[Rfam]
Background
The family of this 58-nucleotide sequence from Acyrthosiphon pisum is "mir-3036 microRNA precursor family". The base pairs follow the family's consensus structure, which was predicted with RNAalifold.

RNA sequence: AUUGGUUUCUAGAUCUCAGCAUAUAAAUUGAUUGUUGCUGGGACUUAGAAAGCAAUAU
Numbered sequence: 001a002u003u004g005g006u007u008u009c010u011a012g013a014u015c016u017c018a019g020c021a022u023a024u025a026a027a028u029u030g031a032u033u034g035u036u037g038c039u040g041g042g043a044c045u046u047a048g049a050a051a052g053c054a055a056u057a058u
Stems, first nucleotide, its partner, number of pairs: 001056004006051007014043008